[Rfam]
Overview
Rfam assigns this 121-nucleotide RNA sequence from Mycetomoellerius zeteki to the family "MIR397 microRNA precursor family". The organism belongs to Mycetomoellerius, within Eukaryota. The literature on the family includes a 2009 paper in BMC Genomics by Mica et al., "High throughput approaches reveal splicing of primary microRNA transcripts and tissue specific expression of mature microRNAs in Vitis vinifera".
RNA sequence: AGUAAACACAAUAUUACAUGUAACGUACAUGUAACAUGAAAACACACUGUGUUAUAUUACAGUUAUUCUUGUUGAGUUGACAUUUCAUGUUACAUGUGCGUUACAUGUAACAUUGUGUUUA
Numbered sequence: 001a002g003u004a005a006a007c008a009c010a011a012u013a014u015u016a017c018a019u020g021u022a023a024c025g026u027a028c029a030u031g032u033a034a035c036a037u038g039a040a041a042a043c044a045c046a047c048u049g050u051g052u053u054a055u056a057u058u059a060c061a062g063u064u065a066u067u068c069u070u071g072u073u074g075a076g077u078u079g080a081c082a083u084u085u086c087a088u089g090u091u092a093c094a095u096g097u098g099c100g101u102u103a104c105a106u107g108u109a110a111c112a113u114u115g116u117g118u119u120u121a
Stems, first nucleotide, its partner, number of pairs: 006118006014110015030094008